[Rfam]
This 134-nucleotide RNA from Microcebus murinus belongs to the Rfam family "Small nucleolar RNA SNORA22". Rfam 15.1 lists 883 matches to the family in 606 species. By type it is an H/ACA-box small nucleolar RNA. Taxonomically the source falls in Microcebus (Eukaryota, Craniata, Euteleostomi, Euarchontoglires). ACA22 is a member of the H/ACA class of snoRNA that guide the sites of modification of uridines to pseudouridines. Gene Ontology terms of the family: nucleolus and RNA processing. A search with the family's covariance model found it, with a score of 122 bits.

RNA sequence: CUGCACAAUGAACACCCAAGACUGCUUCCUCAUUCCCUUGGCUUUGACACUGUGCUAGAGCAAUGUCUGAUCAUUUUCUCUUCAUUGAAAGGAAUAUUUAUCCUUUUAAAUGUAUUCAGAAAGCCAGCACAUUA
Numbered sequence: 001c002u003g004c005a006c007a008a009u010g011a012a013c014a015c016c017c018a019a020g021a022c023u024g025c026u027u028c029c030u031c032a033u034u035c036c037c038u039u040g041g042c043u044u045u046g047a048c049a050c051u052g053u054g055c056u057a058g059a060g061c062a063a064u065g066u067c068u069g070a071u072c073a074u075u076u077u078c079u080c081u082u083c084a085u086u087g088a089a090a091g092g093a094a095u096a097u098u099u100a101u102c103c104u105u106u107u108a109a110a111u112g113u114a115u116u117c118a119g120a121a122a123g124c125c126a127g128c129a130c131a132u133u134a
Base pairs, nucleotide, nucleotide: 003055004054005053006052007051013046014045016041017040018039019038020037024033058072059071061069062068079120080119081118083112084111085110086109087107088106089105090104091103092102093101